RNA sequence: CCUCCGGGGAGUAGCCCACCCGCAUCGACCGAUCAGUGCCGUCUUGACCUGCUGGAUCAACGUGUUGAGUCAACGUGCUCAACCCGCGGCUGGACCAGCACGAUCGCAACAGCACUGGUCCGUGUCGAUCCGGGAGCAUGCAUCAACAUACUUGGCCGGCUGGCCAUGGUGCAUGCGGUUCGCGCCUUGAUGGCGCAGGCCGGGCGAGACC
Number, nucleotide and partner (000 for none) at each position: 001c000002c000003u000004c000005c000006g000007g000008g000009g000010a000011g000012u000013a000014g000015c000016c000017c000018a000019c134020c133021c132022g000023c000024a000025u000026c000027g000028a000029c000030c000031g000032a000033u000034c000035a000036g000037u000038g000039c000040c000041g000042u000043c000044u000045u000046g000047a000048c000049c000050u000051g000052c000053u000054g000055g000056a000057u000058c000059a000060a000061c000062g000063u000064g000065u000066u000067g000068a000069g000070u000071c000072a000073a000074c000075g000076u000077g000078c000079u000080c000081a000082a000083c000084c000085c000086g000087c000088g000089g000090c000091u000092g000093g000094a000095c000096c000097a000098g000099c000100a000101c000102g000103a000104u000105c000106g000107c000108a000109a000110c000111a000112g000113c000114a000115c000116u000117g000118g000119u000120c000121c000122g000123u000124g000125u000126c000127g000128a000129u000130c000131c000132g021133g020134g019135a000136g176137c175138a174139u173140g172141c171142a170143u169144c168145a167146a000147c000148a000149u000150a000151c000152u000153u166154g165155g164156c163157c162158g000159g000160c000161u000162g157163g156164c155165c154166a153167u145168g144169g143170u142171g141172c140173a139174u138175g137176c136177g210178g000179u208180u207181c206182g205183c204184g000185c000186c000187u000188u000189g000190a000191u000192g000193g000194c000195g000196c000197a000198g000199g000200c000201c000202g000203g000204g183205c182206g181207a180208g179209a000210c177211c000
About this RNA:
Manganese Mn2+ riboswitch aptamer (yybP-ykoY): a 211-nucleotide sequence from Novilysobacter concretionis. This RNA was originally discovered in E. coli during a large scale screen and was named SraF. The family was later found to exist upstream of related families of protein genes in many bacteria, including the the yybP and ykoK genes in B. subtilis. The specific functions of these proteins are unknown, but this structured RNA element may be involved in their genetic regulation as a riboswitch. A search with the family's covariance model found it, with a score of 57 bits.